Shown here is a 73-nucleotide RNA from Cnephaeus nilssonii, a member of the family "mir-9229 microRNA precursor family".
[Rfam]
RNA sequence: AGACACCCUUAUGGGCAGGACUUGCUUCAGUGGGCUUUGGUGCUCACUGAGUCUUCCCUUUGAGUGUGUCGCU
Numbered sequence: 001a002g003a004c005a006c007c008c009u010u011a012u013g014g015g016c017a018g019g020a021c022u023u024g025c026u027u028c029a030g031u032g033g034g035c036u037u038u039g040g041u042g043c044u045c046a047c048u049g050a051g052u053c054u055u056c057c058c059u060u061u062g063a064g065u066g067u068g069u070c071g072c073u
Base pairs, nucleotide, nucleotide: 002070003069004068005067006066008064009063010062011061013058014057015056017054019053020052021051027050028049029048030047031046032045033044034043035040

Its family is annotated with miRNA-mediated post-transcriptional gene silencing and RISC complex in the Gene Ontology.
The organism belongs to Cnephaeus, within Eukaryota.